[Rfam]
The family of this 153-nucleotide RNA sequence from Lacicoccus alkaliphilus is "Ribosomal protein L10 leader". Taxonomically the source falls in Lacicoccus alkaliphilus (Bacteria, Bacillota, Bacilli, Caryophanales). It is annotated as a cis-regulatory leader. Rfam's curators write: This family is a putative r-protein leader autoregulatory structure found in B. subtilis and other low-GC Gram-positive bacteria. It is located in the 5' untranslated regions of mRNAs encoding ribosomal proteins L10 and L12 (rplJ-rplL). A Rho-independent transcription terminator structure that is probably involved in regulation is included at the 3' end.

RNA sequence: ACUUGUAUUAAAAUAUUACCUAAGACAGCAGGAGUGGCGGUCCGCCGCUGCUUAAAACCAUAUCCUGCCGAGGCAAAUGAAAAUGACUUGAAUUGACCAAUAGAUAUUCAAGCACUUUUUGCCGUGGGUAAAAGGUGCUUUUUUUAUUGCACC
Number, nucleotide and partner (000 for none) at each position: 001a000002c000003u000004u000005g000006u000007a000008u000009u000010a000011a000012a000013a000014u000015a000016u000017u000018a000019c000020c000021u000022a000023a000024g000025a000026c000027a000028g068029c067030a066031g065032g064033a063034g051035u050036g049037g048038c047039g046040g045041u000042c000043c000044g000045c040046c039047g038048c037049u036050g035051c034052u000053u000054a000055a000056a000057a000058c000059c000060a000061u000062a000063u033064c032065c031066u030067g029068c028069c000070g000071a000072g000073g000074c000075a000076a000077a000078u000079g000080a000081a000082a000083a000084u000085g000086a000087c000088u000089u000090g000091a000092a000093u000094u000095g000096a000097c000098c000099a000100a000101u000102a000103g000104a000105u000106a000107u000108u000109c000110a000111a000112g138113c137114a136115c135116u134117u133118u132119u131120u130121g129122c000123c000124g000125u000126g000127g000128g000129u121130a120131a119132a118133a117134g116135g115136u114137g113138c112139u000140u000141u000142u000143u000144u000145u000146a000147u000148u000149g000150c000151a000152c000153c000